Rfam assigns this 112-nucleotide sequence from Oceanobacillus indicireducens to the family "SAM riboswitch aptamer (S box leader)". The source organism's lineage runs through Bacteria, Bacillati, Bacilli, Bacillaceae and Oceanobacillus.
[Rfam]
Nucleotides: 112
Base pairs, nucleotide, nucleotide: 001112002111003110004109005108006107007106008105013041015040016039017038021031022030023029025084026083027082028081042076043075044074045073047072048071049068050067051066052065080104085101086100087099088098089097090096
Number, partner (000 for none) and nucleotide at each position: 001112c002111u003110c004109u005108u006107a007106u008105c009000a010000a011000g012000a013041g014000u015040a016039g017038c018000u019000g020000a021031g022030g023029g024000a025084c026083u027082g028081g029023c030022c031021c032000g033000a034000u035000g036000a037000a038017g039016c040015u041013c042076g043075g044074c045073a046000a047072c048071c049068u050067u051066u052065u053000u054000a055000u056000g057000u058000c059000a060000a061000c062000c063000a064000u065052a066051a067050a068049a069000g070000a071048g072047g073045u074044g075043c076042u077000a078000a079000u080104u081028c082027c083026a084025g085101c086100a087099a088098a089097a090096c091000g092000u093000g094000a095000u096090g097089u098088u099087u100086u101085g102000a103000a104080a105008g106007a107006u108005a109004a110003g111002a112001g